[Rfam]
Nucleotides: 063
Stems, first nucleotide, its partner, number of pairs: 002063004012055001015053001017051001022045004027040001
Number, partner (000 for none) and nucleotide at each position: 001000g002063c003062a004061c005060a006000u007000g008000u009000g010000a011000u012055g013000u014000g015053a016000c017051c018000a019000a020000a021000a022045c023044a024043g025042u026000a027040u028000g029000a030000g031000g032000c033000a034000a035000c036000u037000a038000u039000g040027a041000c042025a043024c044023u045022g046000u047000a048000a049000a050000c051017g052000c053015u054000u055012u056000c057000u058000g059000a060005u061004g062003u063002g